[Rfam]
RNA sequence: ACGCAGAAGGGAGGUGGUCCGAACAAUGGUUGAUCAUUAUUGGACUAGCGAGGUGGCUGUCCGCUAGGACGUCGUCCAUUCGGACCUUCCGUCUGGAUGUCUUUGACGUCCUGGCGAAAUCCUCAAACAGACACCGGAACCCCGGGCUGCCGGCGGUCGAGGAGCAUCCUCGGCCAUGGUCCAGCCGGCCCGCCUCAUCGUGAGGCGGAGGCCGCCCGGGGUUCUUUUUCU
Dot-bracket structure: ............((((((.....................................))))))(((((((((((((.............................)))))))))))))...................((((((((((((..................................................................))))))))))))......
A member of the RNA family "Actinobacteria sRNA Ms_IGR-5" from Planotetraspora silvatica, 231 nucleotides long. The organism belongs to Planotetraspora, within Bacteria.